The family of this 97-nucleotide sequence from Clostridiaceae bacterium 14S0207 is "Manganese Mn2+ riboswitch aptamer (yybP-ykoY)". On this family, see Argaman et al., Curr Biol 2001: "Novel small RNA-encoding genes in the intergenic regions of Escherichia coli".
[Rfam]
RNA sequence: UAAUUUGUUAAAGGGGAGUAACUACCCUAAACCGAAGGGCGAUAAAAUCAACAUCAUGGUUUUUACAAACCUGGUUUUAUCAUGGCAAACUUGUCAC
Numbered sequence: 001u002a003a004u005u006u007g008u009u010a011a012a013g014g015g016g017a018g019u020a021a022c023u024a025c026c027c028u029a030a031a032c033c034g035a036a037g038g039g040c041g042a043u044a045a046a047a048u049c050a051a052c053a054u055c056a057u058g059g060u061u062u063u064u065a066c067a068a069a070c071c072u073g074g075u076u077u078u079a080u081c082a083u084g085g086c087a088a089a090c091u092u093g094u095c096a097c
Stems, first nucleotide, its partner, number of pairs: 025039003041081010058071005
Notes: Rfam describes the family as follows. This RNA was originally discovered in E. coli during a large scale screen and was named SraF. The family was later found to exist upstream of related families of protein genes in many bacteria, including the the yybP and ykoK genes in B. subtilis. The specific functions of these proteins are unknown, but this structured RNA element may be involved in their genetic regulation as a riboswitch.